Shown here is a 119-nucleotide RNA from Streptomyces sp. S4.7, a member of the family "Streptomyces-metH RNA".
The source organism's lineage runs through Bacteria, Actinomycetota, Actinomycetes, Kitasatosporales and Streptomyces.
The base pairs follow the family's consensus structure, which is taken from published work.
Nucleotides: 119
Base pairs, nucleotide, nucleotide: 059081060080061079064076065075066074067073084098085097087096088095089094
Number, partner (000 for none) and nucleotide at each position: 001000c002000c003000g004000u005000c006000c007000g008000c009000c010000c011000c012000g013000u014000g015000g016000a017000a018000c019000a020000g021000a022000c023000c024000g025000c026000c027000g028000c029000c030000g031000c032000g033000a034000g035000c036000c037000g038000g039000u040000c041000a042000c043000c044000g045000c046000u047000a048000c049000c050000c051000u052000g053000g054000c055000c056000g057000g058000g059081u060080g061079c062000c063000c064076c065075u066074u067073c068000c069000a070000c071000u072000u073067g074066a075065a076064g077000g078000c079061g080060c081059a082000a083000a084098g085097c086000c087096g088095a089094c090000a091000g092000c093000c094089g095088u096087c097085g098084c099000a100000c101000c102000u103000c104000c105000g106000g107000g108000a109000g110000u111000a112000u113000u114000u115000u116000c117000a118000u119000g
A search with the family's covariance model found it, with a score of 98 bits.